The record is a 132-nucleotide RNA sequence from Vespula vulgaris, which matches "Small nucleolar RNA SNORD10" in Rfam. The source organism's lineage runs through Eukaryota, Apocrita, Vespoidea, Vespidae and Vespula.
[Rfam]
RNA sequence: AUUUCUGUGAUGAUUUUUUGACACAUGCGCGUCAUCUGAGUCACAGCAAAGUUUACUUUUGCCCUUGUGUUUUACAGUGGCAAUUUGUAAACUUUGCACCGGCAUAAAAGAUUAUAAAGUGUCUCUGAAAAU
Dot-bracket structure: ((((..........................................(((((((((................................)))))))))................................))))
Numbered sequence: 001a002u003u004u005c006u007g008u009g010a011u012g013a014u015u016u017u018u019u020g021a022c023a024c025a026u027g028c029g030c031g032u033c034a035u036c037u038g039a040g041u042c043a044c045a046g047c048a049a050a051g052u053u054u055a056c057u058u059u060u061g062c063c064c065u066u067g068u069g070u071u072u073u074a075c076a077g078u079g080g081c082a083a084u085u086u087g088u089a090a091a092c093u094u095u096g097c098a099c100c101g102g103c104a105u106a107a108a109a110g111a112u113u114a115u116a117a118a119g120u121g122u123c124u125c126u127g128a129a130a131a132u
Stems, first nucleotide, its partner, number of pairs: 001132004047096009
Notes: The family's consensus secondary structure was predicted with WAR. It is annotated as a C/D-box small nucleolar RNA. A search with the family's covariance model found it, with a score of 38 bits. Rfam 15.1 lists 433 matches to the family in 306 species. Its family is annotated with nucleolus and RNA processing in the Gene Ontology.